Rfam assigns this 128-nucleotide RNA sequence from Scophthalmus maximus to the family "U4atac minor spliceosomal RNA". NCBI's taxonomy places the organism under Eukaryota, Eumetazoa, Deuterostomia, Chordata, Scophthalmus. Clan: U4 clan. By type it is a spliceosomal small nuclear RNA. For this family Rfam cites "Evolutionary conservation of minor U12-type spliceosome between plants and humans" (Lorkovic et al., RNA, 2005). U4atac is an essential component of the minor U12-type spliceosome complex which is required for removal of the rarer class of eukaryotic introns (AT-AC, U12-type).
RNA sequence: UCCAUCUCUGUCAUGGGGUGAGUGAGCUGCUCAGUGAACGCAUAGUGAGAGCAGCCCUGCUGACAACCAUAACAACACUAACGCACCAGCUGAACCUUGGUCCAGUGUAUGGUGCAAUUUUUGGAAAC
Number, nucleotide and partner (000 for none) at each position: 001u000002c000003c000004a000005u000006c018007u017008c016009u015010g000011u000012c000013a000014u000015g009016g008017g007018g006019u000020g000021a000022g000023u000024g057025a000026g055027c054028u053029g052030c051031u050032c049033a000034g000035u000036g000037a000038a046039c045040g000041c000042a000043u000044a000045g039046u038047g000048a000049g032050a031051g030052c029053a028054g027055c026056c000057c024058u000059g000060c000061u000062g000063a000064c000065a000066a000067c000068c000069a000070u000071a000072a000073c000074a000075a000076c000077a000078c000079u000080a000081a000082c000083g115084c114085a113086c112087c111088a110089g000090c105091u104092g103093a000094a101095c100096c000097u000098u000099g000100g095101u094102c000103c092104a091105g090106u000107g000108u000109a000110u088111g087112g086113u085114g084115c083116a000117a000118u000119u000120u000121u000122u000123g000124g000125a000126a000127a000128c000